[Rfam]
RNA sequence: AGUUUCUGAUUUGCUGGGAGUCUGAAAAAGUCCGGAGAUUGUUGACAUCAGCUUUGUCUCUUUGUUCAUGUGAGAUGGGAGUUGAAUGACUACGGAUUC
Numbered sequence: 001a002g003u004u005u006c007u008g009a010u011u012u013g014c015u016g017g018g019a020g021u022c023u024g025a026a027a028a029a030g031u032c033c034g035g036a037g038a039u040u041g042u043u044g045a046c047a048u049c050a051g052c053u054u055u056g057u058c059u060c061u062u063u064g065u066u067c068a069u070g071u072g073a074g075a076u077g078g079g080a081g082u083u084g085a086a087u088g089a090c091u092a093c094g095g096a097u098u099c
Stems, first nucleotide, its partner, number of pairs: 041093002044090001050083006057075004
Dot-bracket structure: ........................................((.(.....((((((.((((...........))))..))))))......).))......
Rfam assigns this 99-nucleotide sequence from Oryza punctata to the family "Small nucleolar RNA snoR97". A search with the family's covariance model found it, with a score of 56 bits. NCBI's taxonomy places the organism under Eukaryota, Euphyllophyta, Magnoliopsida, Petrosaviidae, Oryza. The family's consensus secondary structure was predicted with WAR. The literature on the family includes a 2002 paper in Curr Biol by Marker et al., "Experimental RNomics: identification of 140 candidates for small non-messenger RNAs in the plant Arabidopsis thaliana".